[Rfam]
The family of this 172-nucleotide RNA from Fusobacterium necrogenes is "Lysine riboswitch aptamer".

RNA sequence: AUAAAAAAUAGAGGCGCAACUGACAAGAGUAAUAUUAUUUAGCAUGACAAGCAAAGAGAUAAUAUAAAAGGGGAAGUUGCCGAAAUAAAAAAGUCGUCAAACUUUUUUGUUGGUAAUUCAGAUAAUAUCUGUCUUAUUGUCAUUGAUUAUUCAAUGGAGUACUAUUUGUGUG
Numbered sequence: 001a002u003a004a005a006a007a008a009u010a011g012a013g014g015c016g017c018a019a020c021u022g023a024c025a026a027g028a029g030u031a032a033u034a035u036u037a038u039u040u041a042g043c044a045u046g047a048c049a050a051g052c053a054a055a056g057a058g059a060u061a062a063u064a065u066a067a068a069a070g071g072g073g074a075a076g077u078u079g080c081c082g083a084a085a086u087a088a089a090a091a092a093g094u095c096g097u098c099a100a101a102c103u104u105u106u107u108u109g110u111u112g113g114u115a116a117u118u119c120a121g122a123u124a125a126u127a128u129c130u131g132u133c134u135u136a137u138u139g140u141c142a143u144u145g146a147u148u149a150u151u152c153a154a155u156g157g158a159g160u161a162c163u164a165u166u167u168g169u170g171u172g
Stems, first nucleotide, its partner, number of pairs: 006167006016080006024072001032065008084111011112138005119131004140157007